[Rfam]
RNA: ASpks TB sRNA
Organism: Streptomyces sp. BR123
RNA sequence: UUUGAUGGCGCCGAGGAGCAGCGGCUGCCCGUCGGGCCGGUCCUGGCCGUAGGUCGCCAGGAUCGCCUGGGCCUC
Numbered sequence: 001u002u003u004g005a006u007g008g009c010g011c012c013g014a015g016g017a018g019c020a021g022c023g024g025c026u027g028c029c030c031g032u033c034g035g036g037c038c039g040g041u042c043c044u045g046g047c048c049g050u051a052g053g054u055c056g057c058c059a060g061g062a063u064c065g066c067c068u069g070g071g072c073c074u075c
Stems, first nucleotide, its partner, number of pairs: 014026002032070002038065002043060003047056001049054001